[Rfam]
RNA sequence: UGUUUCGUCUAAUAGGGAGUGGGACAGAAAUAAUAUUUAACAAAAUUUAUUUCGUUCUACCCCAACUUGCAUUGUCUGUAGAAUUUCCUUUCGAAAUUCUCUAUGUUGGGGCCCCACCCCAACUUGCACAUUAUUGUAAGCUGACAGAAAGUCAGCUUCUUUGUUUGGGGGCCCCGCCAACUUGCACAUUAUUGUAAGCUGACAGAAAAUCAGCUUCUAUGUUGGGGCCCCACUAGAAUUGAAAAAAGCUUGUUACAAGCGUAUUUUCUUUCAGUCAACUACAGCCAAUAUAACAUUGUAGUGCCUAGGACAUUGAAUUUAU
Numbered sequence: 001u002g003u004u005u006c007g008u009c010u011a012a013u014a015g016g017g018a019g020u021g022g023g024a025c026a027g028a029a030a031u032a033a034u035a036u037u038u039a040a041c042a043a044a045a046u047u048u049a050u051u052u053c054g055u056u057c058u059a060c061c062c063c064a065a066c067u068u069g070c071a072u073u074g075u076c077u078g079u080a081g082a083a084u085u086u087c088c089u090u091u092c093g094a095a096a097u098u099c100u101c102u103a104u105g106u107u108g109g110g111g112c113c114c115c116a117c118c119c120c121a122a123c124u125u126g127c128a129c130a131u132u133a134u135u136g137u138a139a140g141c142u143g144a145c146a147g148a149a150a151g152u153c154a155g156c157u158u159c160u161u162u163g164u165u166u167g168g169g170g171g172c173c174c175c176g177c178c179a180a181c182u183u184g185c186a187c188a189u190u191a192u193u194g195u196a197a198g199c200u201g202a203c204a205g206a207a208a209a210u211c212a213g214c215u216u217c218u219a220u221g222u223u224g225g226g227g228c229c230c231c232a233c234u235a236g237a238a239u240u241g242a243a244a245a246a247a248g249c250u251u252g253u254u255a256c257a258a259g260c261g262u263a264u265u266u267u268c269u270u271u272c273a274g275u276c277a278a279c280u281a282c283a284g285c286c287a288a289u290a291u292a293a294c295a296u297u298g299u300a301g302u303g304c305c306u307a308g309g310a311c312a313u314u315g316a317a318u319u320u321a322u
Stems, first nucleotide, its partner, number of pairs: 001014004015063003019060007027053007035046004065137002069132001073128003080100008105123007138216007218292008232275003236272003241268005248260004298322003301318002304315001
Rfam assigns this 322-nucleotide RNA sequence from Staphylococcus aureus to the family "Staphylococcus sRNA 35 (srn_0335)". By type it is a small RNA. NCBI's taxonomy places the organism under Bacteria, Caryophanales, Staphylococcaceae, Staphylococcus, Staphylococcus aureus. A reference for the family is Mader et al. (2016), "Staphylococcus aureus Transcriptome Architecture: From Laboratory to Infection-Mimicking Conditions", PLoS Genet. It scores 153 bits against the family's covariance model.